[Rfam]
RNA sequence: AUAGUCGCACAACUCCGAGCGCUUUUAAGCUAAGACUUGCAUGUUAAGCUUACUGCGCCGAUAGGGUUUAAAAGGAAACUUUUGAGCCUCCCGGAUGGAAAGGAGUGAUCGAUAUGGAUUG
Numbered sequence: 001a002u003a004g005u006c007g008c009a010c011a012a013c014u015c016c017g018a019g020c021g022c023u024u025u026u027a028a029g030c031u032a033a034g035a036c037u038u039g040c041a042u043g044u045u046a047a048g049c050u051u052a053c054u055g056c057g058c059c060g061a062u063a064g065g066g067u068u069u070a071a072a073a074g075g076a077a078a079c080u081u082u083u084g085a086g087c088c089u090c091c092c093g094g095a096u097g098g099a100a101a102g103g104a105g106u107g108a109u110c111g112a113u114a115u116g117g118a119u120u121g
Stems, first nucleotide, its partner, number of pairs: 003115001012106005019058004026052005034045003064089011090098002
A member of the RNA family "Molybdenum/Tungsten riboswitch aptamer (Moco RNA motif)" from Halanaerobium saccharolyticum, 121 nucleotides long.